Overview:
Shown here is a 132-nucleotide sequence from Cohnella abietis, a member of the family "c-di-AMP riboswitch aptamer (ydaO/yuaA leader)". From the family's description: This family represents a conserved RNA structure found upstream of the ydaO and yuaA genes in Bacillus subtilis and related genes in other bacteria.
RNA sequence: AGAUAUUCCAAGCCUAAGUCCACAGCGGACGCGGAGAAACCACAUAGUGGGGUGAAGCCGCUAAUCGUGCGGCAGGGAACUCUUUGACCCGAACCCGUCAGCUAACUUCGCAGGCAAACAAAGGGAGGAACA
Numbered sequence: 001a002g003a004u005a006u007u008c009c010a011a012g013c014c015u016a017a018g019u020c021c022a023c024a025g026c027g028g029a030c031g032c033g034g035a036g037a038a039a040c041c042a043c044a045u046a047g048u049g050g051g052g053u054g055a056a057g058c059c060g061c062u063a064a065u066c067g068u069g070c071g072g073c074a075g076g077g078a079a080c081u082c083u084u085u086g087a088c089c090c091g092a093a094c095c096c097g098u099c100a101g102c103u104a105a106c107u108u109c110g111c112a113g114g115c116a117a118a119c120a121a122a123g124g125g126a127g128g129a130a131c132a
Stems, first nucleotide, its partner, number of pairs: 012115003018030003031111006041049002050096003058072004075090003
NCBI's taxonomy places the organism under Bacteria, Bacillati, Caryophanales, Paenibacillaceae, Cohnella.